Overview: Eukaryotic large subunit ribosomal RNA: a 419-nucleotide part of an RNA from Meloidogyne artiellia. Taxonomically the source falls in Meloidogyne (Eukaryota, Opisthokonta, Tylenchoidea, Meloidogynidae). The sequence is in the family's curated seed alignment. For this family Rfam cites "Crystal structure of the ribosome at 5.5 A resolution" (Yusupov et al., Science, 2001).

RNA sequence: ACCCGUUGCUAUGAUGGUAAUCCUGCUUAGUACGAGAGGUUCCGCAGUAGAACCAUUUGGUUCAUGUGCUUGGUCGAUAGGCCAAUGGGCGAAGACCAUCUGAGGGAUUAUGACUGAACGCCUCUAAGUCAGAAUCCCGCCCAGUCAAGAUAGCAAUACUAAUCGCUCUCCGGUGUCGGAAGGCUCUCUCUAUGCCGUUUUUUCAAAAAACGACAGCCCAAUGCCCCAGCAUCUGGCCCUACUCCAAGUCUGAAAAUGAACGAACGAAGUUGCCAAAGCCGUAAGCACUCCACGUGCAGGUGUAACGCCGGGGCCAAAAUCACUCGUAUACGACCUGAAUACUGGUCAGGGGGUUGUACACAGUAGAGCAGCUAUUUACUGAAUACUGUUGAGACUUUACCCUUAAUCGGAUGAUUUGU
Numbered sequence: 001a002c003c004c005g006u007u008g009c010u011a012u013g014a015u016g017g018u019a020a021u022c023c024u025g026c027u028u029a030g031u032a033c034g035a036g037a038g039g040u041u042c043c044g045c046a047g048u049a050g051a052a053c054c055a056u057u058u059g060g061u062u063c064a065u066g067u068g069c070u071u072g073g074u075c076g077a078u079a080g081g082c083c084a085a086u087g088g089g090c091g092a093a094g095a096c097c098a099u100c101u102g103a104g105g106g107a108u109u110a111u112g113a114c115u116g117a118a119c120g121c122c123u124c125u126a127a128g129u130c131a132g133a134a135u136c137c138c139g140c141c142c143a144g145u146c147a148a149g150a151u152a153g154c155a156a157u158a159c160u161a162a163u164c165g166c167u168c169u170c171c172g173g174u175g176u177c178g179g180a181a182g183g184c185u186c187u188c189u190c191u192a193u194g195c196c197g198u199u200u201u202u203u204c205a206a207a208a209a210a211c212g213a214c215a216g217c218c219c220a221a222u223g224c225c226c227c228a229g230c231a232u233c234u235g236g237c238c239c240u241a242c243u244c245c246a247a248g249u250c251u252g253a254a255a256a257u258g259a260a261c262g263a264a265c266g267a268a269g270u271u272g273c274c275a276a277a278g279c280c281g282u283a284a285g286c287a288c289u290c291c292a293c294g295u296g297c298a299g300g301u302g303u304a305a306c307g308c309c310g311g312g313g314c315c316a317a318a319a320u321c322a323c324u325c326g327u328a329u330a331c332g333a334c335c336u337g338a339a340u341a342c343u344g345g346u347c348a349g350g351g352g353g354u355u356g357u358a359c360a361c362a363g364u365a366g367a368g369c370a371g372c373u374a375u376u377u378a379c380u381g382a383a384u385a386c387u388g389u390u391g392a393g394a395c396u397u398u399a400c401c402c403u404u405a406a407u408c409g410g411a412u413g414a415u416u417u418g419u
Stems, first nucleotide, its partner, number of pairs: 005157008015143003021049001023047004053102001058098003065091003069088001070085006104138003111131005168313009317417005323337001326334001343409004348404001349402003353395002360389004366384001369381003